[Rfam]
RNA sequence: GCUACUGUGCCAGCUGGUGAAUGGCUCGGCUCGAGAGCCGACGACGGACGUGCCAAGCUGCGAAAAGCCUGAGGGAGCCGCACGGAGGCAAAGAACUCAGGAUCUCCGAAUGGGAAUCCCUACAACAAUUGCUUCGCGCAAUGGGGAACCCCCCGAAUUGAAACAUCUCAGUAGGGGGCGGAAAAGAACGCAAUAGCGAUGUCGUCAGUAACCGCGAGUGACCGCGACACAGUCCAAACCGAAGCCCGUCAGGGCAAUGUGGUGUUUCGGACUGACACUCAGCGUCAGAUCCCACUUCAGAAGUCUCCUGGAACGGAGCGUGAGACAGGGUGAUAACCCCGUAUGAAGUGGCAGUAUGACGUGCGUCAGCUCCAGAGUAGCAGGGGUCGGAUAUCCUCUGUGAAGAUCCCAGGCAUCCCCUGGGAAGACUAAACACUCCUCGAGACCGAUAGCGAACAAGUAGCGUGAGCGAACGCUGAAAAGCACCCCACGAAGGGCGGUGCAAUAGGGCCUGAAAUCAGUUGGCGAAAGAGC
Numbered sequence: 001g002c003u004a005c006u007g008u009g010c011c012a013g014c015u016g017g018u019g020a021a022u023g024g025c026u027c028g029g030c031u032c033g034a035g036a037g038c039c040g041a042c043g044a045c046g047g048a049c050g051u052g053c054c055a056a057g058c059u060g061c062g063a064a065a066a067g068c069c070u071g072a073g074g075g076a077g078c079c080g081c082a083c084g085g086a087g088g089c090a091a092a093g094a095a096c097u098c099a100g101g102a103u104c105u106c107c108g109a110a111u112g113g114g115a116a117u118c119c120c121u122a123c124a125a126c127a128a129u130u131g132c133u134u135c136g137c138g139c140a141a142u143g144g145g146g147a148a149c150c151c152c153c154c155g156a157a158u159u160g161a162a163a164c165a166u167c168u169c170a171g172u173a174g175g176g177g178g179c180g181g182a183a184a185a186g187a188a189c190g191c192a193a194u195a196g197c198g199a200u201g202u203c204g205u206c207a208g209u210a211a212c213c214g215c216g217a218g219u220g221a222c223c224g225c226g227a228c229a230c231a232g233u234c235c236a237a238a239c240c241g242a243a244g245c246c247c248g249u250c251a252g253g254g255c256a257a258u259g260u261g262g263u264g265u266u267u268c269g270g271a272c273u274g275a276c277a278c279u280c281a282g283c284g285u286c287a288g289a290u291c292c293c294a295c296u297u298c299a300g301a302a303g304u305c306u307c308c309u310g311g312a313a314c315g316g317a318g319c320g321u322g323a324g325a326c327a328g329g330g331u332g333a334u335a336a337c338c339c340c341g342u343a344u345g346a347a348g349u350g351g352c353a354g355u356a357u358g359a360c361g362u363g364c365g366u367c368a369g370c371u372c373c374a375g376a377g378u379a380g381c382a383g384g385g386g387u388c389g390g391a392u393a394u395c396c397u398c399u400g401u402g403a404a405g406a407u408c409c410c411a412g413g414c415a416u417c418c419c420c421u422g423g424g425a426a427g428a429c430u431a432a433a434c435a436c437u438c439c440u441c442g443a444g445a446c447c448g449a450u451a452g453c454g455a456a457c458a459a460g461u462a463g464c465g466u467g468a469g470c471g472a473a474c475g476c477u478g479a480a481a482a483g484c485a486c487c488c489c490a491c492g493a494a495g496g497g498c499g500g501u502g503c504a505a506u507a508g509g510g511c512c513u514g515a516a517a518u519c520a521g522u523u524g525g526c527g528a529a530a531g532a533g534c
Stems, first nucleotide, its partner, number of pairs: 008527010023512001024476002028447002030444006036437002045108004049062003068101006077089003112121003128142005149180001150178005160167002190197002201228005211219002231430004239262003244255004273368004283361004297346003303319001305318004322326001328340003380401007408424005463470002